Shown here is an 89-nucleotide RNA from Sulfurovum lithotrophicum, a member of the family "c-di-GMP-I-GGC riboswitch aptamer".
The source organism's lineage runs through Bacteria, Campylobacterota, Campylobacterales, Sulfurovaceae and Sulfurovum.
The family has 40 seed sequences and 1,298 matches in Rfam 15.1.
The base pairs follow the family's consensus structure, which is taken from published work.
The match comes from Rfam's covariance-model search (67 bits).
RNA sequence: AUUGUCAAAGCCAAACCACCUGAGAAGGUGGGACGGAAAGCUACGGAUCUCCCCCUUUUUUUUGAGGGCAGACCGCCGGGUUGCCAAAA
Numbered sequence: 001a002u003u004g005u006c007a008a009a010g011c012c013a014a015a016c017c018a019c020c021u022g023a024g025a026a027g028g029u030g031g032g033a034c035g036g037a038a039a040g041c042u043a044c045g046g047a048u049c050u051c052c053c054c055c056u057u058u059u060u061u062u063u064g065a066g067g068g069c070a071g072a073c074c075g076c077c078g079g080g081u082u083g084c085c086a087a088a089a
Base pairs, nucleotide, nucleotide: 003086004085011036012035016031017030018029019028020027021026034075039082040081041080042079044078045077046076048072049071
Dot-bracket structure: ..((......((...((((((....))))))..[))..((((.(((.((.....................))..])))))))..))...